[Rfam]
RNA sequence: GGAUAACAUUGUUUUAUUAUCAUCGGCUAAUAACACCAUGACAUGUGUAAGAAUUAUCUCACGUGUCAUUGUGUUAUUGGCCGAAAAUAACAAAAAGUGAUACCC
Numbered sequence: 001g002g003a004u005a006a007c008a009u010u011g012u013u014u015u016a017u018u019a020u021c022a023u024c025g026g027c028u029a030a031u032a033a034c035a036c037c038a039u040g041a042c043a044u045g046u047g048u049a050a051g052a053a054u055u056a057u058c059u060c061a062c063g064u065g066u067c068a069u070u071g072u073g074u075u076a077u078u079g080g081c082c083g084a085a086a087a088u089a090a091c092a093a094a095a096a097g098u099g100a101u102a103c104c105c
Base pairs, nucleotide, nucleotide: 002104004102005101012095013094014093015092017090018089019088020087023084024083025082026081027080028079029078030077031076032075033074034073035072036071038069039068040067041066042065043064044063045062046061047060050057
Dot-bracket structure: .(.((......((((.((((..((((((((((((((.((((((((((..(......)..)))))))))).))))))))))))))..)))).)))).....)).).
MIR6274 microRNA precursor family: a 105-nucleotide sequence from Prunus yedoensis. The source organism's lineage runs through Eukaryota, Magnoliopsida, Pentapetalae, fabids and Prunus yedoensis. Rfam 15.1 lists 342 matches to the family in 8 species.